[Rfam]
RNA: SAH (S-adenosyl-L-homocysteine) riboswitch aptamer
Organism: Caballeronia telluris
RNA sequence: GCUUCCGAGGAGCGUUGCGACGGUUUCAGCAUCAGCGAAGCCGCCAGGCUCGGAGCAUUCAAUCCGGACGGUUCGAAGGCGUGACAAACGCUCAUUGACCGGCCGCAUCGAACGGCGCUCACGUCAA
Number, nucleotide and partner (000 for none) at each position: 001g000002c000003u055004u054005c053006c052007g051008a050009g000010g000011a000012g000013c000014g000015u000016u000017g000018c000019g000020a000021c043022g042023g041024u040025u039026u038027c000028a000029g000030c000031a000032u000033c000034a000035g000036c000037g000038a026039a025040g024041c023042c022043g021044c000045c000046a000047g000048g000049c000050u008051c007052g006053g005054a004055g003056c000057a000058u000059u000060c000061a000062a000063u000064c000065c000066g000067g000068a000069c000070g000071g000072u000073u000074c000075g000076a000077a000078g000079g000080c000081g000082u000083g000084a000085c000086a000087a000088a000089c000090g000091c000092u000093c000094a000095u000096u000097g000098a000099c000100c000101g000102g000103c000104c000105g000106c000107a000108u000109c000110g000111a000112a000113c000114g000115g000116c000117g000118c000119u000120c000121a000122c000123g000124u000125c000126a000127a000